[Rfam]
RNA sequence: AACGUGCUCCGGGGUCGGUGUAAUUCCGAGCCGGCGGUGAUAGUCCGCGACCCACGAGUUCCUUGGGGAAUGAGUGGUUGACCUGGUGGAACUCCAGGACCGACGGUGAAAGUCCGGAUGGGAGGCAGCACGCC
Numbered sequence: 001a002a003c004g005u006g007c008u009c010c011g012g013g014g015u016c017g018g019u020g021u022a023a024u025u026c027c028g029a030g031c032c033g034g035c036g037g038u039g040a041u042a043g044u045c046c047g048c049g050a051c052c053c054a055c056g057a058g059u060u061c062c063u064u065g066g067g068g069a070a071u072g073a074g075u076g077g078u079u080g081a082c083c084u085g086g087u088g089g090a091a092c093u094c095c096a097g098g099a100c101c102g103a104c105g106g107u108g109a110a111a112g113u114c115c116g117g118a119u120g121g122g123a124g125g126c127a128g129c130a131c132g133c134c
Base pairs, nucleotide, nucleotide: 003132004131005130006129007128008127009124016028017027018026030113031112032102033101034048035047036046037045043100044099052077053076054075055074082098083097084096085095086094104116105115106114
RNA: FMN riboswitch aptamer (RFN element)